Rfam assigns this 91-nucleotide RNA sequence from Canis lupus to the family "mir-8799 microRNA precursor family". The match comes from Rfam's covariance-model search (71 bits). Taxonomically the source falls in Canis lupus (Eukaryota, Vertebrata, Sarcopterygii, Laurasiatheria). Clan: mir-8791 microRNA precursor clan.

RNA sequence: GGGGGGAGGCCGGAUCCUGGGCUGUGUCCCUGGCGCCCUGUGCUCUCGGGCCUGUGCUGCUGGAUUCGUGCUCCCAGCGGUGCAGCCGCUU
Numbered sequence: 001g002g003g004g005g006g007a008g009g010c011c012g013g014a015u016c017c018u019g020g021g022c023u024g025u026g027u028c029c030c031u032g033g034c035g036c037c038c039u040g041u042g043c044u045c046u047c048g049g050g051c052c053u054g055u056g057c058u059g060c061u062g063g064a065u066u067c068g069u070g071c072u073c074c075c076a077g078c079g080g081u082g083c084a085g086c087c088g089c090u091u
Base pairs, nucleotide, nucleotide: 001091002090003089005087006086009083010082011080013078016077019074020073021072023070024069025068026067027064028063030062031059032058033057034056035055036054040052042051043050044049